[Rfam]
RNA sequence: GGAUGUGAGGGCGAUCUGGCUGUGACAUCUGUCACCCCAUUGAUCGCCAGGGUUGAUUCGGCUGAUCUGGCUGGCUAGGAGGGUGUCCCCUUCCUCCCUCAACGUUCCCCGUGCAGCCCUCCCGAAGCUGUGCGUUCAGUCAAAGAGGACGAAGAGGACGACCUUCCCCGAUAGAGGAGGACCAGUCUUUGGUCAAGGGUAUACAAGUAGCUGCGCUCCCCUGCUAGAACCUCCAAACAAGCUCUCGAGGUCCAUUUGUAGGAGAACAUAGGGUAGUCAAGUUUCCAAGACUCCAGACACAUCCAAAUGAGGCACUGCACGUGGUAGUCUGCCUUUCUUU
Numbered sequence: 001g002g003a004u005g006u007g008a009g010g011g012c013g014a015u016c017u018g019g020c021u022g023u024g025a026c027a028u029c030u031g032u033c034a035c036c037c038c039a040u041u042g043a044u045c046g047c048c049a050g051g052g053u054u055g056a057u058u059c060g061g062c063u064g065a066u067c068u069g070g071c072u073g074g075c076u077a078g079g080a081g082g083g084u085g086u087c088c089c090c091u092u093c094c095u096c097c098c099u100c101a102a103c104g105u106u107c108c109c110c111g112u113g114c115a116g117c118c119c120u121c122c123c124g125a126a127g128c129u130g131u132g133c134g135u136u137c138a139g140u141c142a143a144a145g146a147g148g149a150c151g152a153a154g155a156g157g158a159c160g161a162c163c164u165u166c167c168c169c170g171a172u173a174g175a176g177g178a179g180g181a182c183c184a185g186u187c188u189u190u191g192g193u194c195a196a197g198g199g200u201a202u203a204c205a206a207g208u209a210g211c212u213g214c215g216c217u218c219c220c221c222u223g224c225u226a227g228a229a230c231c232u233c234c235a236a237a238c239a240a241g242c243u244c245u246c247g248a249g250g251u252c253c254a255u256u257u258g259u260a261g262g263a264g265a266a267c268a269u270a271g272g273g274u275a276g277u278c279a280a281g282u283u284u285c286c287a288a289g290a291c292u293c294c295a296g297a298c299a300c301a302u303c304c305a306a307a308u309g310a311g312g313c314a315c316u317g318c319a320c321g322u323g324g325u326a327g328u329c330u331g332c333c334u335u336u337c338u339u340u
Stems, first nucleotide, its partner, number of pairs: 001108003006101006013093002018090002024087007032079002035074002037070003042067004046062003117179001118177004122139001124137002127135002140171002147167003210282003216276002219273005231264004237259005305340003309335005314328005
This 340-nucleotide RNA sequence from Nannospalax galili belongs to the Rfam family "7SK RNA". About the family: 7SK was discovered as an abundant small nuclear RNA in the mid-70s but a possible function has only recently been suggested. Two independent studies have found that 7SK RNA binds the CDK9/cyclin T complex (known as elongation factor P-TEFb). P-TEFb activates transcription by phosphorylating the C-terminal domain of RNA polymerase II. This process is negatively regulated by the 7SK RNP. The secondary structure of 7SK RNA shown here was proposed by Wasserman and Steitz on the basis of chemical modification and enzymatic cleavage experiments. The family's consensus secondary structure is taken from published work.